[Rfam]
A member of the RNA family "TPP riboswitch aptamer (THI element)" from Dyella thiooxydans, 99 nucleotides long.
RNA sequence: GUCUUGAAGCGGGGGUGCCCGGUCGAACGGCCGGGCUGAGAGAGUCCCUUGGAACCUGAUCCGGUUCGCACCGGCGUAGGGAGCUUGCAGCAACCAUGA
Numbered sequence: 001g002u003c004u005u006g007a008a009g010c011g012g013g014g015g016u017g018c019c020c021g022g023u024c025g026a027a028c029g030g031c032c033g034g035g036c037u038g039a040g041a042g043a044g045u046c047c048c049u050u051g052g053a054a055c056c057u058g059a060u061c062c063g064g065u066u067c068g069c070a071c072c073g074g075c076g077u078a079g080g081g082a083g084c085u086u087g088c089a090g091c092a093a094c095c096a097u098g099a
Stems, first nucleotide, its partner, number of pairs: 007086004011049004016043001017036007055080004061074004